[Rfam]
RNA sequence: GCUUCGAACUGGGGGUGCCGCUGUGCAGCUGAGAUUGAGUACCCGCACUCAAAACCCCUGUACCUGAUCUGGGUUAUGCCAGCGUAGGGAAGUUCGAGCACUUGUGC
Numbered sequence: 001g002c003u004u005c006g007a008a009c010u011g012g013g014g015g016u017g018c019c020g021c022u023g024u025g026c027a028g029c030u031g032a033g034a035u036u037g038a039g040u041a042c043c044c045g046c047a048c049u050c051a052a053a054a055c056c057c058c059u060g061u062a063c064c065u066g067a068u069c070u071g072g073g074u075u076a077u078g079c080c081a082g083c084g085u086a087g088g089g090a091a092g093u094u095c096g097a098g099c100a101c102u103u104g105u106g107c
Base pairs, nucleotide, nucleotide: 006095007094008093009092010091011058012057013056014055016052017029018028020026021025036051037050038049039048040047063088064087065086066085069082070081071080072079
Description:
The family of this 107-nucleotide RNA from Aneurinibacillus migulanus is "TPP riboswitch aptamer (THI element)". It scores 77 bits against the family's covariance model.